[Rfam]
RNA sequence: AUAACGGUUAAGAAAACCACUCGUAUAACGUUGGAAAUAUGGUCCAAAAGUAUCUACCAAACUACCGUAAAUAGUUUGACUACGAGGGGAAGGAUUGGAUAA
Numbered sequence: 001a002u003a004a005c006g007g008u009u010a011a012g013a014a015a016a017c018c019a020c021u022c023g024u025a026u027a028a029c030g031u032u033g034g035a036a037a038u039a040u041g042g043u044c045c046a047a048a049a050g051u052a053u054c055u056a057c058c059a060a061a062c063u064a065c066c067g068u069a070a071a072u073a074g075u076u077u078g079a080c081u082a083c084g085a086g087g088g089g090a091a092g093g094a095u096u097g098g099a100u101a102a
Stems, first nucleotide, its partner, number of pairs: 018088001020086006031047005058078007
The record is a 102-nucleotide sequence from Pontibacillus marinus, which matches "Purine riboswitch aptamer" in Rfam.
Rfam 15.1 lists 4,097 matches to the family in 1,411 species.
A search with the family's covariance model found it, with a score of 85 bits.
Taxonomically the source falls in Pontibacillus marinus (Bacteria, Bacillota, Bacilli, Pontibacillus).
The family's consensus secondary structure is taken from published work.